Rfam assigns this 139-nucleotide sequence from Lacinutrix sp. Bg11-31 to the family "Flavo-1 RNA".
Taxonomically the source falls in Lacinutrix (Bacteria, Bacteroidota, Flavobacteriales, Flavobacteriaceae).
RNA sequence: GAGUAGCGUUAAGGAUGGAAACGGCAUCCUUUUUUUUACUUAUAAAUACAAGUAAUCUAGAAUAUAAAUAGAUCUCUAUUAAUUAAGAUGCUGAAAUGGGUUGAGUUAAAAAAAGAUACAGUGGACAGCCUGACCAAGA
Numbered sequence: 001g002a003g004u005a006g007c008g009u010u011a012a013g014g015a016u017g018g019a020a021a022c023g024g025c026a027u028c029c030u031u032u033u034u035u036u037u038a039c040u041u042a043u044a045a046a047u048a049c050a051a052g053u054a055a056u057c058u059a060g061a062a063u064a065u066a067a068a069u070a071g072a073u074c075u076c077u078a079u080u081a082a083u084u085a086a087g088a089u090g091c092u093g094a095a096a097u098g099g100g101u102u103g104a105g106u107u108a109a110a111a112a113a114a115g116a117u118a119c120a121g122u123g124g125a126c127a128g129c130c131u132g133a134c135c136a137a138g139a
Stems, first nucleotide, its partner, number of pairs: 012131003016127002021122002026117003032112005038106005